[Rfam]
RNA sequence: GUCUAGUGUCAAGGAUCACCCCCGUUUGUUGCCUGUUUAACAUCGCAACGUGCGGGGGUUUUCU
Numbered sequence: 001g002u003c004u005a006g007u008g009u010c011a012a013g014g015a016u017c018a019c020c021c022c023c024g025u026u027u028g029u030u031g032c033c034u035g036u037u038u039a040a041c042a043u044c045g046c047a048a049c050g051u052g053c054g055g056g057g058g059u060u061u062u063c064u
Stems, first nucleotide, its partner, number of pairs: 018059008027050005035041001
RNA: rdlD antitoxin